[Rfam]
The family of this 138-nucleotide RNA sequence from Zizania palustris is "Small nucleolar RNA F1/F2/snoR5a". The family's RNA type in Rfam is H/ACA-box small nucleolar RNA.
RNA sequence: UCAUGCCAUUUGGUAUCUGACACACAAUCAUUUCUCUGGUUAUGUGUCUCGAAACAUGGCAGAAAACAAGGGGGAACGGUUUUGCGACACUGGUUGCUGCUCAAUGAGCCUCUAGUUACUAUAACACCGUUUACACAC
Numbered sequence: 001u002c003a004u005g006c007c008a009u010u011u012g013g014u015a016u017c018u019g020a021c022a023c024a025c026a027a028u029c030a031u032u033u034c035u036c037u038g039g040u041u042a043u044g045u046g047u048c049u050c051g052a053a054a055c056a057u058g059g060c061a062g063a064a065a066a067c068a069a070g071g072g073g074g075a076a077c078g079g080u081u082u083u084g085c086g087a088c089a090c091u092g093g094u095u096g097c098u099g100c101u102c103a104a105u106g107a108g109c110c111u112c113u114a115g116u117u118a119c120u121a122u123a124a125c126a127c128c129g130u131u132u133a134c135a136c137a138c
Base pairs, nucleotide, nucleotide: 004061005060006059007058008057009056019048020047021046022045023044024043026041027040028039029038030037075131076130077129078128079127089116090115091114092113093112096109097108098107

The organism belongs to Zizania, within Eukaryota. Rfam describes the family as follows. This family contains F1, F2 and snoR5a sequences, all of which are members of the the H/ACA class of snoRNA that guide the sites of modification of uridines to pseudouridines. Pairs were carried over by alignment from the consensus structure, which was predicted with PFOLD. Gene Ontology terms of the family: nucleolus and RNA processing. A search with the family's covariance model found it, with a score of 135 bits.